The family of this 132-nucleotide sequence from Chinchilla lanigera is "Small nucleolar RNA SNORA38". ACA38 is a member of the H/ACA class of snoRNA that guide the sites of modification of uridines to pseudouridines. Gene Ontology terms of the family: Cajal body, nucleolus and RNA processing. Rfam classes the family as an H/ACA-box small nucleolar RNA. The organism belongs to Chinchilla, within Eukaryota. The match comes from Rfam's covariance-model search (146 bits). Pairs were carried over by alignment from the consensus structure, which was predicted with RNAfold.

[Rfam]
RNA sequence: UCCUCCAACAAAGGCGUGUCUUUGGUUCCUUGUCUUUGGACACGUAAGAAUUGGAGGCAAAAAAAUUGCGGAUUUGGAGACAUCUGGGGCCAGCUUGCUCCCCGCAGGCUCAAGAUUAACCAUCUCACAUAA
Numbered sequence: 001u002c003c004u005c006c007a008a009c010a011a012a013g014g015c016g017u018g019u020c021u022u023u024g025g026u027u028c029c030u031u032g033u034c035u036u037u038g039g040a041c042a043c044g045u046a047a048g049a050a051u052u053g054g055a056g057g058c059a060a061a062a063a064a065a066u067u068g069c070g071g072a073u074u075u076g077g078a079g080a081c082a083u084c085u086g087g088g089g090c091c092a093g094c095u096u097g098c099u100c101c102c103c104g105c106a107g108g109c110u111c112a113a114g115a116u117u118a119a120c121c122a123u124c125u126c127a128c129a130u131a132a
Stems, first nucleotide, its partner, number of pairs: 002057005015044007024030002070125003074122001092110007